[Rfam]
RNA sequence: ACUGUUCAAUGAUGAGGCCAUGGAAUACGUGCUGGGCACAGCACCCGAAAUCUGUGAGGAAUCUUUCCAUGCUGCCUUCCUUCUGAGAACAGU
Dot-bracket structure: (((((...................................................................................)))))

Record summary:
A member of the RNA family "Small nucleolar RNA U83B" from Pelusios castaneus, 93 nucleotides long. The match comes from Rfam's covariance-model search (99 bits). It is annotated as a C/D-box small nucleolar RNA. Its family is annotated with RNA processing and nucleolus in the Gene Ontology. The source organism's lineage runs through Eukaryota, Deuterostomia, Chordata, Sarcopterygii and Pelusios.